[Rfam]
Rfam assigns this 96-nucleotide RNA to the family "pemK RNA". The sequence is in the family's curated seed alignment.
RNA sequence: AUAAUGAUACUCCUGUCUAGCCACAGUCCGAGCGUUAAGAGCGUCGCAGGCAAUGGGGACAGCUCGGAGAAACUCGGAGAGGUAAAAUUCCUGUGG
Numbered sequence: 001a002u003a004a005u006g007a008u009a010c011u012c013c014u015g016u017c018u019a020g021c022c023a024c025a026g027u028c029c030g031a032g033c034g035u036u037a038a039g040a041g042c043g044u045c046g047c048a049g050g051c052a053a054u055g056g057g058g059a060c061a062g063c064u065c066g067g068a069g070a071a072a073c074u075c076g077g078a079g080a081g082g083u084a085a086a087a088u089u090c091c092u093g094u095g096g
Stems, first nucleotide, its partner, number of pairs: 012093001013062006063079003067075003080092003
Dot-bracket structure: ...........(((((((......................................))))))(((.(((...))).)))(((.......))))...